[Rfam]
RNA sequence: AGAAGUAUGCAAUAAUAGCUUUUGGAGCGCUAUGGUAUUCCUCCCGAACAUCGGGAACUAAAGCUGUAGACAACCGUUCCAAGAGACGCUGCUUCU
Dot-bracket structure: ((((((..((............((((((((((((((.....(((((.....)))))......))))))).....)))))))......)).))))))